[Rfam]
RNA sequence: CAGUGUGCGAUAAAGUGCUUACAGUGCAGGUAGUAUGAUAACCUGGCCUACUGCAGUGUGAGCACUUCUUUCCCACGCUG
Numbered sequence: 001c002a003g004u005g006u007g008c009g010a011u012a013a014a015g016u017g018c019u020u021a022c023a024g025u026g027c028a029g030g031u032a033g034u035a036u037g038a039u040a041a042c043c044u045g046g047c048c049u050a051c052u053g054c055a056g057u058g059u060g061a062g063c064a065c066u067u068c069u070u071u072c073c074c075a076c077g078c079u080g
Stems, first nucleotide, its partner, number of pairs: 004077004009072002013067011025055003029052005
The family of this 80-nucleotide sequence from Cottoperca gobio is "mir-17 microRNA precursor family". The base pairs follow the family's consensus structure, which was predicted with RNAalifold. About the family: This family represents the microRNA (miRNA) precursor mir-17, family, which includes mir-20, mir-91, and mir-103. miRNAs are transcribed as ~70nt precursors (modelled here) and subsequently processed by the Dicer enzyme to give a ~22nt product. NCBI's taxonomy places the organism under Eukaryota, Eumetazoa, Craniata, Bovichtidae, Cottoperca. Rfam links the family to the GO terms RISC complex and miRNA-mediated post-transcriptional gene silencing. The literature on the family includes a 2001 paper in Cell by Ambros, "microRNAs: tiny regulators with great potential".